[Rfam]
RNA sequence: AGAUGAGAGAUACACCCCGCUCACGGGCGACCGUGGGCGACAUCGGGACGGGGCCUCCCCAGCUUCGACCCGGCCGUGCCUUGGCGCACACACCCGGAGCCUCCGGCUCCGGUUCUCCUCACCGAUCGGA
Numbered sequence: 001a002g003a004u005g006a007g008a009g010a011u012a013c014a015c016c017c018c019g020c021u022c023a024c025g026g027g028c029g030a031c032c033g034u035g036g037g038c039g040a041c042a043u044c045g046g047g048a049c050g051g052g053g054c055c056u057c058c059c060c061a062g063c064u065u066c067g068a069c070c071c072g073g074c075c076g077u078g079c080c081u082u083g084g085c086g087c088a089c090a091c092a093c094c095c096g097g098a099g100c101c102u103c104c105g106g107c108u109c110c111g112g113u114u115c116u117c118c119u120c121a122c123c124g125a126u127c128g129g130a
Stems, first nucleotide, its partner, number of pairs: 004121004009117002018039009043073005049067006076089004094112008122129002